[Rfam]
RNA sequence: UUCGGGCCUGCGCCGGGUUCCCCGCCGCCCUCCAAGCCGUCGCCGAUGCACUCCUCCCGAUAAUAUCGAGCGAUCCAGUCGCCCUCUCGCGGCGCGGC
Numbered sequence: 001u002u003c004g005g006g007c008c009u010g011c012g013c014c015g016g017g018u019u020c021c022c023c024g025c026c027g028c029c030c031u032c033c034a035a036g037c038c039g040u041c042g043c044c045g046a047u048g049c050a051c052u053c054c055u056c057c058c059g060a061u062a063a064u065a066u067c068g069a070g071c072g073a074u075c076c077a078g079u080c081g082c083c084c085u086c087u088c089g090c091g092g093c094g095c096g097g098c
Stems, first nucleotide, its partner, number of pairs: 010028003014024002036098004041094005070082005
Dot-bracket structure: .........(((.((.......)).))).......((((.(((((........................(((((...))))).......)))))))))

This 98-nucleotide RNA sequence belongs to the Rfam family "Pseudomon-Rho RNA".
Rfam classes the family as a cis-regulatory element.